[Rfam]
RNA sequence: ACACAGGAAGGGAGGUGGUCCAGUUUUGUGUGAUAAACGGACUCGUGAGGUGACUGUCCGCUAGCCGGUCUCGUGGUCCUCACCCCUGCCGGGUGACCUGCGGGCACCGGCACCGGCGAGAACCAGGCAGGCACCGGACCUCCGGGCGUCGUCGCUGGUCCCGACGGCCCGUCGUCCCUUCUAUGGGCGAUGGAAACGCCCGGAGGUCUCUUUGU
Numbered sequence: 001a002c003a004c005a006g007g008a009a010g011g012g013a014g015g016u017g018g019u020c021c022a023g024u025u026u027u028g029u030g031u032g033a034u035a036a037a038c039g040g041a042c043u044c045g046u047g048a049g050g051u052g053a054c055u056g057u058c059c060g061c062u063a064g065c066c067g068g069u070c071u072c073g074u075g076g077u078c079c080u081c082a083c084c085c086c087u088g089c090c091g092g093g094u095g096a097c098c099u100g101c102g103g104g105c106a107c108c109g110g111c112a113c114c115g116g117c118g119a120g121a122a123c124c125a126g127g128c129a130g131g132c133a134c135c136g137g138a139c140c141u142c143c144g145g146g147c148g149u150c151g152u153c154g155c156u157g158g159u160c161c162c163g164a165c166g167g168c169c170c171g172u173c174g175u176c177c178c179u180u181c182u183a184u185g186g187g188c189g190a191u192g193g194a195a196a197c198g199c200c201c202g203g204a205g206g207u208c209u210c211u212u213u214g215u
Stems, first nucleotide, its partner, number of pairs: 014058006059118004064113001067111001069109001136209013150192006